[Rfam]
RNA: Small nucleolar RNA SNORD63
Nucleotides: 072
Stems, first nucleotide, its partner, number of pairs: 001071004
Number, partner (000 for none) and nucleotide at each position: 001071g002070u003069g004068c005000a006000a007000u008000g009000a010000u011000g012000u013000a014000u015000u016000u017000g018000c019000c020000a021000a022000c023000a024000c025000a026000u027000c028000a029000u030000u031000c032000u033000g034000a035000a036000g037000a038000a039000a040000a041000g042000u043000a044000u045000g046000u047000g048000u049000g050000g051000u052000g053000a054000c055000u056000u057000u058000u059000u060000a061000u062000c063000a064000c065000u066000g067000a068004g069003c070002a071001c072000a